[Rfam]
RNA sequence: AGUGCAAGCUGGCUUGUCGCUGUUUCGUCUGACGAAAGAGAGGAAAGUCCGGGCAACAUAGAGCGCCAUACUUCCUAACGGGAAGGGGUCAAGUUGGUGACGACUUGGCUACAGAUAGUGCCACAGAAAAUAUACCGCCCCGAUCUUGAUCGGAGUAAGGGUGAAAUGGUGGGGUAAGAGCCCACCGUCCCAAUGGCGACAUUGGGAGCAGGGCAAACCUUAUGGGUUGAAAGACCAAAUAGGUCCCGCACCAGAUUCAAUUCUGGAAAAGGCUGCUCGUCUUUCUGCGGGAUGGGUAGGUUGAUUGAGUCUGUUCGCGAGGGCAGAUCUAGAUAAAUGACAAGCAUUCUUAUUGCAAAGCAAAAAGAACACAGAACCCGGCUUAUAGGCUUGCACUCUUU
Number, nucleotide and partner (000 for none) at each position: 001a397002g396003u395004g394005c393006a392007a391008g390009c389010u388011g386012g345013c344014u343015u342016g341017u340018c339019g000020c040021u039022g000023u037024u036025u035026c034027g033028u032029c000030u000031g000032a028033c027034g026035a025036a024037a023038g000039a021040g020041a000042g000043g000044a000045a384046a383047g382048u000049c381050c380051g379052g378053g377054c229055a228056a227057c226058a000059u000060a000061g278062a277063g276064c275065g000066c225067c224068a223069u222070a221071c085072u084073u083074c082075c081076u000077a000078a000079c000080g000081g075082g074083a073084a072085g071086g112087g110088g109089u108090c107091a106092a105093g104094u103095u102096g101097g000098u000099g000100a000101c096102g095103a094104c093105u092106u091107g090108g089109c088110u087111a000112c086113a220114g219115a000116u000117a000118g218119u217120g214121c213122c212123a000124c000125a000126g000127a000128a000129a000130a000131u000132a000133u000134a000135c160136c159137g156138c155139c000140c153141c152142g151143a150144u149145c000146u000147u000148g000149a144150u143151c142152g141153g140154a000155g138156u137157a000158a000159g136160g135161g000162u000163g000164a000165a000166a000167u000168g186169g185170u184171g183172g182173g181174g000175u000176a000177a000178g000179a000180g000181c173182c172183c171184a170185c169186c168187g209188u207189c206190c205191c204192a203193a202194u201195g200196g000197c000198g000199a000200c195201a194202u193203u192204g191205g190206g189207a188208g000209c187210a000211g000212g122213g121214c120215a000216a000217a119218c118219c114220u113221u070222a069223u068224g067225g066226g057227u056228u055229g054230a000231a000232a000233g302234a301235c300236c299237a000238a000239a000240u000241a000242g000243g293244u292245c291246c290247c289248g288249c000250a000251c000252c000253a000254g000255a000256u000257u000258c000259a000260a000261u000262u000263c000264u000265g000266g000267a000268a000269a283270a282271g281272g280273c279274u000275g064276c063277u062278c061279g273280u272281c271282u270283u269284u000285c000286u000287g000288c248289g247290g246291g245292a244293u243294g000295g000296g000297u000298a000299g236300g235301u234302u233303g000304a000305u000306u000307g000308a000309g328310u327311c326312u325313g324314u323315u322316c321317g000318c000319g000320a000321g316322g315323g314324c313325a312326g311327a310328u309329c000330u000331a000332g000333a000334u000335a000336a000337a000338u000339g018340a017341c016342a015343a014344g013345c012346a000347u000348u000349c000350u000351u000352a000353u000354u000355g000356c000357a000358a000359a000360g000361c000362a000363a000364a000365a000366a000367g000368a000369a000370c000371a000372c000373a000374g000375a000376a000377c053378c052379c051380g050381g049382c047383u046384u045385a000386u011387a000388g010389g009390c008391u007392u006393g005394c004395a003396c002397u001398c000399u000400u000401u000
Bacterial RNase P class A: a 401-nucleotide RNA from Belliella baltica.
The match comes from Rfam's covariance-model search (284 bits).
Rfam classes the family as a ribozyme.